RNA sequence: UUAAAAUUAAAUGGCGAUUGUCGGUAUGGUCUCUUUUUCAACAUAUACACCAAACAUUCUAUAUAAAGUGACUAGACCGAACACUCGUGCUAUAAUUUUAAAA
Number, nucleotide and partner (000 for none) at each position: 001u000002u000003a000004a000005a000006a000007u000008u000009a000010a000011a093012u092013g091014g090015c089016g088017a000018u000019u083020g082021u081022c079023g078024g077025u000026a000027u074028g073029g072030u071031c070032u000033c068034u067035u066036u065037u000038u000039c000040a000041a000042c000043a000044u000045a000046u000047a000048c000049a000050c000051c000052a000053a000054a000055c000056a000057u000058u000059c000060u000061a000062u000063a000064u000065a036066a035067a034068g033069u000070g031071a030072c029073u028074a027075g000076a000077c024078c023079g022080a000081a021082c020083a019084c000085u000086c000087g000088u016089g015090c014091u013092a012093u011094a000095a000096u000097u000098u000099u000100a000101a000102a000103a000
Rfam assigns this 103-nucleotide RNA from Drosophila mojavensis to the family "mir-286 microRNA precursor family". For this family Rfam cites "Direct sequencing and expression analysis of a large number of miRNAs in Aedes aegypti and a multispecies survey of novel mosquito miRNAs" (Li et al., BMC Genomics, 2009). Gene Ontology terms of the family: miRNA-mediated post-transcriptional gene silencing and RISC complex. The source organism's lineage runs through Eukaryota, Metazoa, Arthropoda, Allotriocarida and mojavensis species complex.